[Rfam]
RNA sequence: GUCAACACUCCAUACUUCUUUACAUUCCAUACAACUCUUUAAGAAGAUAUGGGAAGUAAGGAAGCACGGAAUCCAAAC
Numbered sequence: 001g002u003c004a005a006c007a008c009u010c011c012a013u014a015c016u017u018c019u020u021u022a023c024a025u026u027c028c029a030u031a032c033a034a035c036u037c038u039u040u041a042a043g044a045a046g047a048u049a050u051g052g053g054a055a056g057u058a059a060g061g062a063a064g065c066a067c068g069g070a071a072u073c074c075a076a077a078c
Stems, first nucleotide, its partner, number of pairs: 007072001009070003013066001015064009025054001027052005

The family of this 78-nucleotide sequence from Araneus ventricosus is "mir-1 microRNA precursor family". Rfam 15.1 lists 4,474 matches to the family in 965 species. The organism belongs to Araneus, within Eukaryota. This family represents the microRNA (miRNA) mir-1 family. miRNAs are transcribed as ~70nt precursors (modelled here) and subsequently processed by the Dicer enzyme to give a ~22nt product. In this case the mature sequence comes from the 3' arm of the precursor. The extents of the hairpin precursors are not generally known and are estimated based on hairpin prediction. The products are thought to have regulatory roles through complementarity to mRNA. The involvement of Dicer in miRNA processing suggests a relationship with the phenomenon of RNA interference. miRNAs are numbered based on the sequence of the mature RNA. This family also contains the mir-206 from human, which appears to be related to mir-1. A search with the family's covariance model found it, with a score of 53 bits. For this family Rfam cites "microRNAs: tiny regulators with great potential" (Ambros, Cell, 2001).